[Rfam]
RNA: Mason-Pfizer monkey virus packaging signal
RNA sequence: GGGCUCCCAAUGUGUGGGGCCUGGAUACAGGGGACUCUGUGAGGAAGAUGACUCAGGUAGCCAACAUUGUAUAUAGAAAUUCCUUCGAACGCUGUGGGAGCCUGCUGCAGCCGAAACAAAGGUGAGUGAUAGUCUGAUUAUGGGACAAGUAUUAAACCAACAUGAGGUCUAUCUGAGACAGUUAAAAGGGGCAUUAAAAAUGUGAGGAGUAAAGGUAAAAACCAAUGAUUUGUUUAAUUUUUUUUUAUUUUGUUAAGGAUCUUUGCCCUU
Numbered sequence: 001g002g003g004c005u006c007c008c009a010a011u012g013u014g015u016g017g018g019g020c021c022u023g024g025a026u027a028c029a030g031g032g033g034a035c036u037c038u039g040u041g042a043g044g045a046a047g048a049u050g051a052c053u054c055a056g057g058u059a060g061c062c063a064a065c066a067u068u069g070u071a072u073a074u075a076g077a078a079a080u081u082c083c084u085u086c087g088a089a090c091g092c093u094g095u096g097g098g099a100g101c102c103u104g105c106u107g108c109a110g111c112c113g114a115a116a117c118a119a120a121g122g123u124g125a126g127u128g129a130u131a132g133u134c135u136g137a138u139u140a141u142g143g144g145a146c147a148a149g150u151a152u153u154a155a156a157c158c159a160a161c162a163u164g165a166g167g168u169c170u171a172u173c174u175g176a177g178a179c180a181g182u183u184a185a186a187a188g189g190g191g192c193a194u195u196a197a198a199a200a201u202g203u204g205a206g207g208a209g210u211a212a213a214g215g216u217a218a219a220a221a222c223c224a225a226u227g228a229u230u231u232g233u234u235u236a237a238u239u240u241u242u243u244u245u246u247a248u249u250u251u252g253u254u255a256a257g258g259a260u261c262u263u264u265g266c267c268c269u270u
Base pairs, nucleotide, nucleotide: 006033007032008031012028013027014026038050039049040048082122083121084119085118090113091112093109094108095107096106097105130147133144134143135142136141153196154195155194157191158190204245205244206243207242208241209239213231214230215229216228218226255270256269257268258267260265